A member of the RNA family "ASpks TB sRNA" from Streptomyces nodosus, 75 nucleotides long. The source organism's lineage runs through Bacteria, Actinomycetota, Actinomycetes, Kitasatosporales and Streptomyces.
[Rfam]
Nucleotides: 075
Stems, first nucleotide, its partner, number of pairs: 014026002017023001032070002038065001043060002047056003
Number, partner (000 for none) and nucleotide at each position: 001000c002000u003000u004000c005000a006000g007000g008000g009000a010000g011000c012000c013000g014026a015025g016000g017023c018000g019000c020000a021000g022000c023017g024000g025015c026014u027000g028000u029000c030000c031000g032070c033069c034000g035000u036000c037000g038065c039000g040000g041000u042000c043060c044059u045000g046000g047056c048055c049054g050000u051000a052000g053000g054049u055048g056047g057000c058000g059044a060043g061000c062000a063000g064000g065038g066000c067000c068000c069033g070032g071000g072000c073000c074000u075000c